[Rfam]
RNA sequence: AGGGAGUUUUGAAUGUUGUUGUAAAAUAUUUAAACAAUACAAAACAUUCAAAACUCCCUAC
Numbered sequence: 001a002g003g004g005a006g007u008u009u010u011g012a013a014u015g016u017u018g019u020u021g022u023a024a025a026a027u028a029u030u031u032a033a034a035c036a037a038u039a040c041a042a043a044a045c046a047u048u049c050a051a052a053a054c055u056c057c058c059u060a061c
Base pairs, nucleotide, nucleotide: 001059002058003057004056005055006054007053008052009051010050011049012048013047014046015045016044017043019042020041021040022039023038

The record is a 61-nucleotide sequence from Acyrthosiphon pisum, which matches "mir-3047 microRNA precursor family" in Rfam. The source organism's lineage runs through Eukaryota, Opisthokonta, Metazoa, Protostomia and Acyrthosiphon.